[Rfam]
RNA: L19-Flavobacteria ribosomal protein leader
RNA sequence: CAACCUCUGGCGAGAACCGCGAACGUUG
Numbered sequence: 001c002a003a004c005c006u007c008u009g010g011c012g013a014g015a016a017c018c019g020c021g022a023a024c025g026u027u028g
Stems, first nucleotide, its partner, number of pairs: 001028004008023001010020003